[Rfam]
RNA sequence: GAGGCUGGAGGCCAACGCCCGACAGCGCGAUGCGCCCUCGGGCGCGUCCGGC
Numbered sequence: 001g002a003g004g005c006u007g008g009a010g011g012c013c014a015a016c017g018c019c020c021g022a023c024a025g026c027g028c029g030a031u032g033c034g035c036c037c038u039c040g041g042g043c044g045c046g047u048c049c050g051g052c
Stems, first nucleotide, its partner, number of pairs: 016044007025035004
Rfam assigns this 52-nucleotide RNA sequence from Methylobacterium nodulans to the family "ffh sRNA". It is one of the family's seed sequences. For this family Rfam cites "Identification of candidate structured RNAs in the marine organism 'Candidatus Pelagibacter ubique'" (Meyer et al., BMC Genomics, 2009).